[Rfam]
RNA sequence: UAGGGGAGUCAGGGUUCAGAACCCCUCCCUGAACCCAGGGUAACAUUGAAGGUGGAGGGGAA
Numbered sequence: 001u002a003g004g005g006g007a008g009u010c011a012g013g014g015u016u017c018a019g020a021a022c023c024c025c026u027c028c029c030u031g032a033a034c035c036c037a038g039g040g041u042a043a044c045a046u047u048g049a050a051g052g053u054g055g056a057g058g059g060g061a062a
Base pairs, nucleotide, nucleotide: 008041009040010039012036013035014034015033016031019028022060023059024058025057026056027055
RNA: Gag/pol translational readthrough site